Description:
The family of this 72-nucleotide RNA sequence is "DUF3800-X RNA". The family's consensus secondary structure is taken from published work. The sequence is in the family's curated seed alignment. By type it is a small RNA.

RNA sequence: CAGCGAGUAAGUCCUAUUCGAACCAAUGAUGCCUGCAUUAGUGGGAUGGGAGAACUAGGGUAGGGGUCGCUU
Numbered sequence: 001c002a003g004c005g006a007g008u009a010a011g012u013c014c015u016a017u018u019c020g021a022a023c024c025a026a027u028g029a030u031g032c033c034u035g036c037a038u039u040a041g042u043g044g045g046a047u048g049g050g051a052g053a054a055c056u057a058g059g060g061u062a063g064g065g066g067u068c069g070c071u072u
Base pairs, nucleotide, nucleotide: 002071003070004069005068006067012065013064014063015062016061017060018059019058032045033044034043035042036041